[Rfam]
Rfam assigns this 304-nucleotide RNA sequence from Gossypium arboreum to the family "Plant signal recognition particle RNA". It scores 178 bits against the family's covariance model. The family's RNA type in Rfam is non-coding RNA gene.
RNA sequence: GCCGAGCUUGGUAACGCUAGCUUGUAACCUGUGUGGGGGCUUUAAGGUGAUGGAACAUGGGGCUGGCUUGCAGAGUCGGAUCUUGAGUUGGUCCAAAUCUGGCUUGCCCGUUCCAAGCUAAGAGCUGAACUGAGGGGCUUGAGUGAAAACUUUGAGCCUCGUGGUUCCUAGAGUGGAGGGUACUGCGUGAGGCUGGUUUCACAGAGCAGCGAAGACCUCCCUCUCUUAGCAGUGGAAGGAUAACAGGCUUGAUCUUAGUAAUAAAUUUGGAUUUAUAAUAGGAUUAAAAAGAUAAAAUAUGUCU
Numbered sequence: 001g002c003c004g005a006g007c008u009u010g011g012u013a014a015c016g017c018u019a020g021c022u023u024g025u026a027a028c029c030u031g032u033g034u035g036g037g038g039g040c041u042u043u044a045a046g047g048u049g050a051u052g053g054a055a056c057a058u059g060g061g062g063c064u065g066g067c068u069u070g071c072a073g074a075g076u077c078g079g080a081u082c083u084u085g086a087g088u089u090g091g092u093c094c095a096a097a098u099c100u101g102g103c104u105u106g107c108c109c110g111u112u113c114c115a116a117g118c119u120a121a122g123a124g125c126u127g128a129a130c131u132g133a134g135g136g137g138c139u140u141g142a143g144u145g146a147a148a149a150c151u152u153u154g155a156g157c158c159u160c161g162u163g164g165u166u167c168c169u170a171g172a173g174u175g176g177a178g179g180g181u182a183c184u185g186c187g188u189g190a191g192g193c194u195g196g197u198u199u200c201a202c203a204g205a206g207c208a209g210c211g212a213a214g215a216c217c218u219c220c221c222u223c224u225c226u227u228a229g230c231a232g233u234g235g236a237a238g239g240a241u242a243a244c245a246g247g248c249u250u251g252a253u254c255u256u257a258g259u260a261a262u263a264a265a266u267u268u269g270g271a272u273u274u275a276u277a278a279u280a281g282g283a284u285u286a287a288a289a290a291g292a293u294a295a296a297a298u299a300u301g302u303c304u
Stems, first nucleotide, its partner, number of pairs: 001040003004023005010017001028037003045304003050300003057293001058288001061284001063282002066279001068278003072274003076270002079262001081260001083258003087255001091254001099251001101249006108239002111237005117230008127167006134160008142151003168173001175220005184213001186211003193204003